mir-172 microRNA precursor family: a 134-nucleotide sequence from Manihot esculenta. About the family: mir-172 has been experimentally verified in Arabidopsis thaliana. This family is thought to target mRNAs coding for APETALA2-like transcription factors. The mature sequence is excised from the 3' arm of the hairpin. A search with the family's covariance model found it, with a score of 88 bits. For this family Rfam cites "Computational Identification of Plant MicroRNAs and Their Targets, Including a Stress-Induced miRNA" (Jones-Rhoades and Bartel, Mol Cell, 2004).
[Rfam]
RNA sequence: UUGUUUGCGGGCGUAGCAUCAUCAAGAUUCACAUGCAAAUGCACGGUGGUGAUCCUCUCUCUCUUUCUCUCUUCAUCCCCAUGAACCAAAGUUAUUUGAAGUGAGAAUCUUGAUGAUGCUGCAUCGGCAAUAAA
Number, nucleotide and partner (000 for none) at each position: 001u000002u000003g000004u000005u000006u000007g000008c000009g000010g125011g124012c000013g122014u121015a120016g119017c118018a117019u116020c115021a114022u113023c112024a111025a110026g109027a108028u107029u106030c105031a000032c103033a102034u000035g000036c000037a000038a000039a000040u000041g000042c000043a000044c000045g000046g000047u000048g000049g000050u000051g000052a000053u000054c000055c000056u000057c000058u000059c000060u000061c000062u000063c000064u000065u000066u000067c000068u000069c000070u000071c000072u000073u000074c000075a000076u000077c000078c000079c000080c000081a000082u000083g000084a000085a000086c000087c000088a000089a000090a000091g000092u000093u000094a000095u000096u000097u000098g000099a000100a000101g000102u033103g032104a000105g030106a029107a028108u027109c026110u025111u024112g023113a022114u021115g020116a019117u018118g017119c016120u015121g014122c013123a000124u011125c010126g000127g000128c000129a000130a000131u000132a000133a000134a000